This 87-nucleotide RNA sequence from Theobroma cacao belongs to the Rfam family "mir-156 microRNA precursor family". This family represents the plant microRNA (miRNA) precursor mir-156.
[Rfam]
RNA sequence: GUGACAGAAGAGAGUGAGCACACAGGGUUCUUUCUUGCAUGAGUGCCUCAUGCUUGAAACUUUAUGUGCUUGCUCUCCUUCCGUCAC
Numbered sequence: 001g002u003g004a005c006a007g008a009a010g011a012g013a014g015u016g017a018g019c020a021c022a023c024a025g026g027g028u029u030c031u032u033u034c035u036u037g038c039a040u041g042a043g044u045g046c047c048u049c050a051u052g053c054u055u056g057a058a059a060c061u062u063u064a065u066g067u068g069c070u071u072g073c074u075c076u077c078c079u080u081c082c083g084u085c086a087c
Base pairs, nucleotide, nucleotide: 001087002086003085004084005083007081008080009079010077011076012075013074014073015072016071017070018069019068020067021066024063025062